[Rfam]
RNA sequence: UACCAAAAGCUAGAUUUGUGGGGAAGGUUUAUUAAAUAACCUUAACCAAUUCAGGCUAUUUGGUAGAAUAAGUAAGACCACACUCCACAGUGGGCUAUACCACUUAGUAUGGUUCAUUACUAUAUUGUGGCCUACAUU
Numbered sequence: 001u002a003c004c005a006a007a008a009g010c011u012a013g014a015u016u017u018g019u020g021g022g023g024a025a026g027g028u029u030u031a032u033u034a035a036a037u038a039a040c041c042u043u044a045a046c047c048a049a050u051u052c053a054g055g056c057u058a059u060u061u062g063g064u065a066g067a068a069u070a071a072g073u074a075a076g077a078c079c080a081c082a083c084u085c086c087a088c089a090g091u092g093g094g095c096u097a098u099a100c101c102a103c104u105u106a107g108u109a110u111g112g113u114u115c116a117u118u119a120c121u122a123u124a125u126u127g128u129g130g131c132c133u134a135c136a137u138u
Stems, first nucleotide, its partner, number of pairs: 003063005011058003015054002020051002022047002026041004075133002078130005089118012
This 138-nucleotide RNA belongs to the Rfam family "Small nucleolar RNA SNORA4". From the family's description: ACA4 is a member of the H/ACA class of snoRNA that guide the sites of modification of uridines to pseudouridines. The family has 7 seed sequences and 290 matches in Rfam 15.1. The family is grouped with related families in Rfam's "SNORA4 clan".